[Rfam]
RNA sequence: GGCGGGUCUCCCCGCAUGGUGAGUUGGAGCAACGGGUCAGGGGCGGAAGCCAGCAGCCUACUCUGAUAAGUCAGUGCCGGGGGUUAGGCUCGCCGCC
Numbered sequence: 001g002g003c004g005g006g007u008c009u010c011c012c013c014g015c016a017u018g019g020u021g022a023g024u025u026g027g028a029g030c031a032a033c034g035g036g037u038c039a040g041g042g043g044c045g046g047a048a049g050c051c052a053g054c055a056g057c058c059u060a061c062u063c064u065g066a067u068a069a070g071u072c073a074g075u076g077c078c079g080g081g082g083g084u085u086a087g088g089c090u091c092g093c094c095g096c097c
Base pairs, nucleotide, nucleotide: 004091005090006089007088008087009083010082011081012080013079014078015074017073018072019071020070023067024066025065026064027063028062029061034059035058036057037056042051043050044049

This 97-nucleotide RNA from Neisseria elongata belongs to the Rfam family "Bacterial small signal recognition particle RNA". It is annotated as a non-coding RNA gene. The base pairs follow the family's consensus structure, which is taken from published work. From the family's description: The signal recognition particle (SRP) is a universally conserved ribonucleoprotein involved in the co-translational targeting of proteins to membranes.